Rfam assigns this 57-nucleotide sequence from Gossypium barbadense to the family "Plastid-rps18 3UTR RNA". A reference for the family is Richter et al. (2023), "Retrograde signaling in plants: A critical review focusing on the GUN pathway and beyond", Plant Commun. Pairs were carried over by alignment from the consensus structure, which was predicted with LocARNA. From the family's description: Plastid rps18 is a non-coding RNA (ncRNA) present in plastids. It was identified as a short stem-loop motif in the 3 prime untranslate region (3UTR) of rps18 gene. Rfam 15.1 lists 1,462 matches to the family in 409 species.
RNA sequence: UGCAAGUAUUUUACGAUUCAGAAGUAAUUGUUUCUUGUACAGAUUGUGUAUUGAUCU
Dot-bracket structure: .................(.((((((....)))))).)....................